[Rfam]
A member of the RNA family "ZMP/ZTP riboswitch aptamer (pfl RNA motif)" from Streptomyces sp. TverLS-915, 106 nucleotides long. The base pairs follow the family's consensus structure, which is taken from published work. Lineage of the source: Bacteria > Bacillati > Actinomycetota > Streptomycetaceae > Streptomyces.

RNA sequence: CCCCGGGGCCGUGACUGGCGCGAACAGUGGAAUCGACCACGAGGAAGCGGCCUCCGCACGGGUGGUGCCUCCGCCCGGUGUGCGGUCGUGCGCCUGGGCCAUUCGA
Numbered sequence: 001c002c003c004c005g006g007g008g009c010c011g012u013g014a015c016u017g018g019c020g021c022g023a024a025c026a027g028u029g030g031a032a033u034c035g036a037c038c039a040c041g042a043g044g045a046a047g048c049g050g051c052c053u054c055c056g057c058a059c060g061g062g063u064g065g066u067g068c069c070u071c072c073g074c075c076c077g078g079u080g081u082g083c084g085g086u087c088g089u090g091c092g093c094c095u096g097g098g099c100c101a102u103u104c105g106a
Base pairs, nucleotide, nucleotide: 003056005054006053007052008051009050010049011048012047015044016043017094018093019092020091021090027040028039029038030037084100085099086098087097